RNA sequence: GGAGUGUACGAUAGACUUACCUCCACGUGGUGCACUCUGGGCAACGUAUAUUCAUACGGCAAAAAAGUCUUU
Numbered sequence: 001g002g003a004g005u006g007u008a009c010g011a012u013a014g015a016c017u018u019a020c021c022u023c024c025a026c027g028u029g030g031u032g033c034a035c036u037c038u039g040g041g042c043a044a045c046g047u048a049u050a051u052u053c054a055u056a057c058g059g060c061a062a063a064a065a066a067g068u069c070u071u072u
Stems, first nucleotide, its partner, number of pairs: 001038007019031003045058005
Dot-bracket structure: (((((((...........(((.......))))))))))......(((((....)))))..............

The family of this 72-nucleotide RNA from Rodentolepis nana is "HDV ribozyme from F. prausnitzii". A search with the family's covariance model found it, with a score of 44 bits. The family has 48 seed sequences and 3,803 matches in Rfam 15.1. The literature on the family includes a 2009 paper in Science by Webb et al., "Widespread occurrence of self-cleaving ribozymes". Rfam links the family to the GO term catalytic activity.